[Rfam]
RNA sequence: GCCUCGAUGAUCUUCGGUGGUCCGGAGUGCGGGCUUCAAACCCGUAGCCGAUGAGAGUCGGAGUGGUUCAAUUCCACCUUUGGGGC
Numbered sequence: 001g002c003c004u005c006g007a008u009g010a011u012c013u014u015c016g017g018u019g020g021u022c023c024g025g026a027g028u029g030c031g032g033g034c035u036u037c038a039a040a041c042c043c044g045u046a047g048c049c050g051a052u053g054a055g056a057g058u059c060g061g062a063g064u065g066g067u068u069c070a071a072u073u074c075c076a077c078c079u080u081u082g083g084g085g086c
Base pairs, nucleotide, nucleotide: 001086002085003084004083005082006081007080009078012027013026014025015024016023017022028046029045030044031043032042033041048061049060050059051058052057063077064076065075066074
Dot-bracket structure: (((((((.(..((((((....))))))((((((.......)))))).(((((....))))).((((.......))))).)))))))